[Rfam]
RNA sequence: AGUCAUGAUGACUAUUCUCCGUAAAUAGUGAUUGUGAUCAGCGAUGCGGAUGUGUUGCCCCACAUUCGUAUCGCGCU
Numbered sequence: 001a002g003u004c005a006u007g008a009u010g011a012c013u014a015u016u017c018u019c020c021g022u023a024a025a026u027a028g029u030g031a032u033u034g035u036g037a038u039c040a041g042c043g044a045u046g047c048g049g050a051u052g053u054g055u056u057g058c059c060c061c062a063c064a065u066u067c068g069u070a071u072c073g074c075g076c077u
Stems, first nucleotide, its partner, number of pairs: 002038007011029006041074003045070010
The family of this 77-nucleotide sequence from Pantoea ananatis is "SymR antitoxin". On this family, see Kawano et al., Mol Microbiol 2007: "An antisense RNA controls synthesis of an SOS-induced toxin evolved from an antitoxin". Pairs were carried over by alignment from the consensus structure, which is taken from published work. Rfam classes the family as an antitoxin RNA.